[Rfam]
RNA sequence: UAACCACAAGACGACGUGAAUGGGUUAAGAUUACCUUCGGGCUAAUCGAACCCAGGAAAGUCCCCGGGCCCAUUACUGCAGAGAUGCAGGCCCGGAAACGGGUAAAACUUCGAGUGAAUUGGAAUCGCUCCCGCUUUGUGGGAAGGGCUGAGACGUGUGUGGAGCCUUGGUUUCUCACCGAAGGAUCUUGGUCGAACAACAGUUAUUCACGUGGUUAUUGAACUAACUGAACGGGGCUUACGAUCUUGUGGUU
Numbered sequence: 001u002a003a004c005c006a007c008a009a010g011a012c013g014a015c016g017u018g019a020a021u022g023g024g025u026u027a028a029g030a031u032u033a034c035c036u037u038c039g040g041g042c043u044a045a046u047c048g049a050a051c052c053c054a055g056g057a058a059a060g061u062c063c064c065c066g067g068g069c070c071c072a073u074u075a076c077u078g079c080a081g082a083g084a085u086g087c088a089g090g091c092c093c094g095g096a097a098a099c100g101g102g103u104a105a106a107a108c109u110u111c112g113a114g115u116g117a118a119u120u121g122g123a124a125u126c127g128c129u130c131c132c133g134c135u136u137u138g139u140g141g142g143a144a145g146g147g148c149u150g151a152g153a154c155g156u157g158u159g160u161g162g163a164g165c166c167u168u169g170g171u172u173u174c175u176c177a178c179c180g181a182a183g184g185a186u187c188u189u190g191g192u193c194g195a196a197c198a199a200c201a202g203u204u205a206u207u208c209a210c211g212u213g214g215u216u217a218u219u220g221a222a223c224u225a226a227c228u229g230a231a232c233g234g235g236g237c238u239u240a241c242g243a244u245c246u247u248g249u250g251g252u253u
Stems, first nucleotide, its partner, number of pairs: 002253010014212006022053004029047005035041001058239003062236004077088004090103005129185003135181002138178007145167004155160001214223003
RNA: RNase MRP